RNA: Bacterial large subunit ribosomal RNA, nucleotides 2074 to 2660
RNA sequence: CCCGCGACUGGACAGAAAGACCCCGUGAAGCUUUACUACAGCUUGAUAUUGGGUUUCGGUACUACAUGUACAGGAUAGGUGGGAGACUGUGAAGCUAGGACGUCAGUCUUAGUGGAGUCAAUGUUGGGAUACCACCCUUGUAGUGCUGAAAUUCUAACCCGUGUCCGUAAGCCGGGCAGGGGACAGUGUCAGGUGGGUAGUUUGACUGGGGCGGUCGCCUCCUAAAGAGUAACGGAGGCGCUCCAAGGUUCCCUCAGCGCGGAUGGAAAUCGCGCGAAGAGUGCAAAGGCAUAAGGGAGCUUGACUGUAAGACAUACAGGUCGAGCAGGAACGAAAGUUGGACUUAGUGAUCCGGCGGUACCGAGUGGAAGGGCCGUCGCUAAACGGAUAAAAGCUACUCCGGGGAUAACAGGCUUAUCUCGCCCAAGAGUCCAUAUCGACGGCGAGGUUUGGCACCUCGAUGUCGGCUCAUCACAUCCUGGAGCUGAAGCAGGUUCCAAGGGUUGGGCUGUUCGCCCAUUAAAGUGGUACGUGAGCUGGGUUCAGAACGUCGUGAGACAGUUCGGUCCAUAUCCGUCGCGGGCGUA
Numbered sequence: 001c002c003c004g005c006g007a008c009u010g011g012a013c014a015g016a017a018a019g020a021c022c023c024c025g026u027g028a029a030g031c032u033u034u035a036c037u038a039c040a041g042c043u044u045g046a047u048a049u050u051g052g053g054u055u056u057c058g059g060u061a062c063u064a065c066a067u068g069u070a071c072a073g074g075a076u077a078g079g080u081g082g083g084a085g086a087c088u089g090u091g092a093a094g095c096u097a098g099g100a101c102g103u104c105a106g107u108c109u110u111a112g113u114g115g116a117g118u119c120a121a122u123g124u125u126g127g128g129a130u131a132c133c134a135c136c137c138u139u140g141u142a143g144u145g146c147u148g149a150a151a152u153u154c155u156a157a158c159c160c161g162u163g164u165c166c167g168u169a170a171g172c173c174g175g176g177c178a179g180g181g182g183a184c185a186g187u188g189u190c191a192g193g194u195g196g197g198u199a200g201u202u203u204g205a206c207u208g209g210g211g212c213g214g215u216c217g218c219c220u221c222c223u224a225a226a227g228a229g230u231a232a233c234g235g236a237g238g239c240g241c242u243c244c245a246a247g248g249u250u251c252c253c254u255c256a257g258c259g260c261g262g263a264u265g266g267a268a269a270u271c272g273c274g275c276g277a278a279g280a281g282u283g284c285a286a287a288g289g290c291a292u293a294a295g296g297g298a299g300c301u302u303g304a305c306u307g308u309a310a311g312a313c314a315u316a317c318a319g320g321u322c323g324a325g326c327a328g329g330a331a332c333g334a335a336a337g338u339u340g341g342a343c344u345u346a347g348u349g350a351u352c353c354g355g356c357g358g359u360a361c362c363g364a365g366u367g368g369a370a371g372g373g374c375c376g377u378c379g380c381u382a383a384a385c386g387g388a389u390a391a392a393a394g395c396u397a398c399u400c401c402g403g404g405g406a407u408a409a410c411a412g413g414c415u416u417a418u419c420u421c422g423c424c425c426a427a428g429a430g431u432c433c434a435u436a437u438c439g440a441c442g443g444c445g446a447g448g449u450u451u452g453g454c455a456c457c458u459c460g461a462u463g464u465c466g467g468c469u470c471a472u473c474a475c476a477u478c479c480u481g482g483a484g485c486u487g488a489a490g491c492a493g494g495u496u497c498c499a500a501g502g503g504u505u506g507g508g509c510u511g512u513u514c515g516c517c518c519a520u521u522a523a524a525g526u527g528g529u530a531c532g533u534g535a536g537c538u539g540g541g542u543u544c545a546g547a548a549c550g551u552c553g554u555g556a557g558a559c560a561g562u563u564c565g566g567u568c569c570a571u572a573u574c575c576g577u578c579g580c581g582g583g584c585g586u587a
Stems, first nucleotide, its partner, number of pairs: 001583008010575003015569001022404004027400002029396005035201004042193007051154016068137001078136005085119003094113008158181003162178006204216004217239006240385001242342002248300006254280002257275006281290002305328004311322003330339003353379007361372002413454003417451001418448007428438002465540001466538004470532001471529005478503002481498006505519005546564004550559003